[Rfam]
The record is a 72-nucleotide RNA from Smittium simulii, which matches "tRNA" in Rfam. The source organism's lineage runs through Eukaryota, Kickxellomycota, Harpellales, Legeriomycetaceae and Smittium.
RNA sequence: GCCUGGUUAGCUCAAUGGUAGAGCGUGAGGCUUUUAACCUCAAAGUUGCGGGUUCGACCCCCGCAUUAGGCU
Number, nucleotide and partner (000 for none) at each position: 001g071002c070003c069004u068005g067006g066007u065008u000009a000010g024011c023012u022013c021014a000015a000016u000017g000018g000019u000020a000021g013022a012023g011024c010025g000026u042027g041028a040029g039030g038031c000032u000033u000034u000035u000036a000037a000038c030039c029040u028041c027042a026043a000044a000045g000046u000047u000048g064049c063050g062051g061052g060053u000054u000055c000056g000057a000058c000059c000060c052061c051062c050063g049064c048065a007066u006067u005068a004069g003070g002071c001072u000